[Rfam]
This 180-nucleotide RNA from Nitrosomonas europaea belongs to the Rfam family "Proteobacterial sRNA psRNA2".
The literature on the family includes a 2010 paper in FEMS Microbiol Lett by Gvakharia et al., "Computational prediction and transcriptional analysis of sRNAs in Nitrosomonas europaea".
It is annotated as a small RNA.
Pairs were carried over by alignment from the consensus structure.
Lineage of the source: Bacteria > Pseudomonadota > Betaproteobacteria > Nitrosomonadales > Nitrosomonas europaea.

RNA sequence: GGAUUACUCCUUUACGCUUUCGCGUUUGGUUGAUAAAGAUUCGCACCUCUAUCAAACCGGGUAAUCCCACCUCUUGGCAAGACCUGCUGUCAGAUCAAAUCUGAACUACUACACCUGAUGGUGUGAAUCCAUAUCAUCAGGAGAUUUUCUUUUCAAGGCACCAAUAAGCAGAUCGUGUAA
Numbered sequence: 001g002g003a004u005u006a007c008u009c010c011u012u013u014a015c016g017c018u019u020u021c022g023c024g025u026u027u028g029g030u031u032g033a034u035a036a037a038g039a040u041u042c043g044c045a046c047c048u049c050u051a052u053c054a055a056a057c058c059g060g061g062u063a064a065u066c067c068c069a070c071c072u073c074u075u076g077g078c079a080a081g082a083c084c085u086g087c088u089g090u091c092a093g094a095u096c097a098a099a100u101c102u103g104a105a106c107u108a109c110u111a112c113a114c115c116u117g118a119u120g121g122u123g124u125g126a127a128u129c130c131a132u133a134u135c136a137u138c139a140g141g142a143g144a145u146u147u148u149c150u151u152u153u154c155a156a157g158g159c160a161c162c163a164a165u166a167a168g169c170a171g172a173u174c175g176u177g178u179a180a
Stems, first nucleotide, its partner, number of pairs: 001067007009060002014025004028058004032053004037048002075155003081149002085144001089106002091103005109140002113137001